[Rfam]
RNA: mraW RNA
RNA sequence: UGACGGAGAGCGUGUACGGACUCUAUCCCGGGCGUGAAGCGUUCUGGUGUACUUCCCCGACAUCAGAGCAGCCGCCCGGGGUAGGGCUCUAUACGCUCCCCAAACAUGG
Dot-bracket structure: .........(((((((.((.((((((((((((((.(..((..((((((((.........))))))))))..))))))))))))))).))))))))).............